[Rfam]
Shown here is a 153-nucleotide sequence from Gemmobacter aquaticus, a member of the family "ALIL pseudoknot".
It scores 75 bits against the family's covariance model.
Rfam 15.1 lists 2,146 matches to the family in 1,098 species.
NCBI's taxonomy places the organism under Bacteria, Pseudomonadota, Alphaproteobacteria, Rhodobacterales, Gemmobacter.
Rfam links the family to the GO term positive regulation of translational frameshifting.
RNA sequence: UGCGUAUUUUGCGAUGAUCGAAGGCAGUGCGGCAUCGCUUCGAGCGCUGCCAGAGAUGCUCGACCGCCGGUCGAAGUGAUGGUGGGUUUCAUCGACGCGCUCCGGGAUGCGCACGGGGUCGAGCCGAUUUGCAGUGUGCUGCCGAUUGCCCCG
Numbered sequence: 001u002g003c004g005u006a007u008u009u010u011g012c013g014a015u016g017a018u019c020g021a022a023g024g025c026a027g028u029g030c031g032g033c034a035u036c037g038c039u040u041c042g043a044g045c046g047c048u049g050c051c052a053g054a055g056a057u058g059c060u061c062g063a064c065c066g067c068c069g070g071u072c073g074a075a076g077u078g079a080u081g082g083u084g085g086g087u088u089u090c091a092u093c094g095a096c097g098c099g100c101u102c103c104g105g106g107a108u109g110c111g112c113a114c115g116g117g118g119u120c121g122a123g124c125c126g127a128u129u130u131g132c133a134g135u136g137u138g139c140u141g142c143c144g145a146u147u148g149c150c151c152c153g
Stems, first nucleotide, its partner, number of pairs: 016068001114153005125148002128145002131142004